The family of this 89-nucleotide RNA from Enterococcus sulfureus is "BsrC". The organism belongs to Enterococcus sulfureus, within Bacteria. By type it is a small RNA.

RNA sequence: UCUCAUUUAAACGAUCCAUACCCAUAACCUCUUAUGGAUCCUUGUAGCUCUCAAGCUACGCCAGUUGGAAUAAACUUCAGCGAAAUAUA
Numbered sequence: 001u002c003u004c005a006u007u008u009a010a011a012c013g014a015u016c017c018a019u020a021c022c023c024a025u026a027a028c029c030u031c032u033u034a035u036g037g038a039u040c041c042u043u044g045u046a047g048c049u050c051u052c053a054a055g056c057u058a059c060g061c062c063a064g065u066u067g068g069a070a071u072a073a074a075c076u077u078c079a080g081c082g083a084a085a086u087a088u089a
Stems, first nucleotide, its partner, number of pairs: 041064002043060007
Rfam describes the family as follows. The 301 nucleotide sequence from Kouji Nakamura has been trimmed to a highly conserved ~85 nucleotide long core to form this family.
It scores 38 bits against the family's covariance model.